[Rfam]
RNA sequence: GUUGGUGUUGUGCGGGAAAUAGUUGGCGAACACGUAACCGCGACACUGGUCGAUGGCGUGAAACAGCGGAUUCCAGUCGAACAUGGCCAGCAUGUAGCCGGGCAGCGUGUUGGCGACGAAAAGCUUGCCCGACGCAAUCAUGUUGGCGCGGGUG
Numbered sequence: 001g002u003u004g005g006u007g008u009u010g011u012g013c014g015g016g017a018a019a020u021a022g023u024u025g026g027c028g029a030a031c032a033c034g035u036a037a038c039c040g041c042g043a044c045a046c047u048g049g050u051c052g053a054u055g056g057c058g059u060g061a062a063a064c065a066g067c068g069g070a071u072u073c074c075a076g077u078c079g080a081a082c083a084u085g086g087c088c089a090g091c092a093u094g095u096a097g098c099c100g101g102g103c104a105g106c107g108u109g110u111u112g113g114c115g116a117c118g119a120a121a122a123g124c125u126u127g128c129c130c131g132a133c134g135c136a137a138u139c140a141u142g143u144u145g146g147c148g149c150g151g152g153u154g
Stems, first nucleotide, its partner, number of pairs: 003034002006032004013025003038056003041052004064154002067150002071081003086147009098134001101130002103127003108122001110119003
Ruegeria cis2 sRNA: a 154-nucleotide RNA from Roseovarius sp. THAF27. A search with the family's covariance model found it, with a score of 113 bits. Rfam classes the family as a small RNA. The family's consensus secondary structure was predicted with RNAfold. Taxonomically the source falls in Roseovarius (Bacteria, Pseudomonadati, Alphaproteobacteria, Rhodobacterales). A reference for the family is Rivers et al. (2016), "Experimental Identification of Small Non-Coding RNAs in the Model Marine Bacterium Ruegeria pomeroyi DSS-3", Front Microbiol.